[Rfam]
RNA: Small Cajal body-specific RNA 2
RNA sequence: CCUCGCGAGUGGGAGUGCGGCUGGGGCUGUGGAUGUCUGUGUGUGGUAUUGUGUGACGUGAAUGGUGCCUUUGGGCUGAAUGCGAGUAUGGAUAUUGGAGUGUGUGUGCGAGCGACUGGGAGGUGCAAGGCGAGUGUGUGUACCCCCCCUCCCCUCCCCUCGCCUACACCUUGAUCUUAUUUGAUCGGGUCGUGACCCCCGCCCCGCCGGGCCGCCCCGAAAUGAAAAGCAGCCCUCCUGCGAAGCCCCCUCGGUGGGGCGCUGUGCAGCGAGGCCCUCUGGGCGGUGGCGGCGUCGCGGUUCCCGGGGUUCCGGGAUCGGUCCUGCGGGCCCGGCGCUCAGAAGUGAUGAAUUGAUCAGAUAGACGAGGCCGGGUCCGUCCCAGCCGCUGAUUACCGAGCGAUUCUGAUCUGA
Numbered sequence: 001c002c003u004c005g006c007g008a009g010u011g012g013g014a015g016u017g018c019g020g021c022u023g024g025g026g027c028u029g030u031g032g033a034u035g036u037c038u039g040u041g042u043g044u045g046g047u048a049u050u051g052u053g054u055g056a057c058g059u060g061a062a063u064g065g066u067g068c069c070u071u072u073g074g075g076c077u078g079a080a081u082g083c084g085a086g087u088a089u090g091g092a093u094a095u096u097g098g099a100g101u102g103u104g105u106g107u108g109c110g111a112g113c114g115a116c117u118g119g120g121a122g123g124u125g126c127a128a129g130g131c132g133a134g135u136g137u138g139u140g141u142a143c144c145c146c147c148c149c150u151c152c153c154c155u156c157c158c159c160u161c162g163c164c165u166a167c168a169c170c171u172u173g174a175u176c177u178u179a180u181u182u183g184a185u186c187g188g189g190u191c192g193u194g195a196c197c198c199c200c201g202c203c204c205c206g207c208c209g210g211g212c213c214g215c216c217c218c219g220a221a222a223u224g225a226a227a228a229g230c231a232g233c234c235c236u237c238c239u240g241c242g243a244a245g246c247c248c249c250c251u252c253g254g255u256g257g258g259g260c261g262c263u264g265u266g267c268a269g270c271g272a273g274g275c276c277c278u279c280u281g282g283g284c285g286g287u288g289g290c291g292g293c294g295u296c297g298c299g300g301u302u303c304c305c306g307g308g309g310u311u312c313c314g315g316g317a318u319c320g321g322u323c324c325u326g327c328g329g330g331c332c333c334g335g336c337g338c339u340c341a342g343a344a345g346u347g348a349u350g351a352a353u354u355g356a357u358c359a360g361a362u363a364g365a366c367g368a369g370g371c372c373g374g375g376u377c378c379g380u381c382c383c384a385g386c387c388g389c390u391g392a393u394u395a396c397c398g399a400g401c402g403a404u405u406c407u408g409a410u411c412u413g414a
Stems, first nucleotide, its partner, number of pairs: 053152001055071002058068003090105001092103004108143001110141001113138002115135002119131001180228003185220004191214002194212001197211003201207002249309004256305004261301003266298002269295003274290003277286002318335004322330003340413004350406006369387003374382002